Streptomyces-metH RNA: a 119-nucleotide sequence. A search with the family's covariance model found it, with a score of 96 bits.

[Rfam]
RNA sequence: CCGUCCACGCCGUGGGACACCCGGGCCCCCGACAGCCACGCCCGCUACCCUGACCGGGUGCGCCUUCUCCCGGAAGGCGCAAAGCCGACAGCCGUCGCAACCAGGGGAGCACCUCCAUG
Numbered sequence: 001c002c003g004u005c006c007a008c009g010c011c012g013u014g015g016g017a018c019a020c021c022c023g024g025g026c027c028c029c030c031g032a033c034a035g036c037c038a039c040g041c042c043c044g045c046u047a048c049c050c051u052g053a054c055c056g057g058g059u060g061c062g063c064c065u066u067c068u069c070c071c072g073g074a075a076g077g078c079g080c081a082a083a084g085c086c087g088a089c090a091g092c093c094g095u096c097g098c099a100a101c102c103a104g105g106g107g108a109g110c111a112c113c114u115c116c117a118u119g
Stems, first nucleotide, its partner, number of pairs: 059081004064076004084098002087096003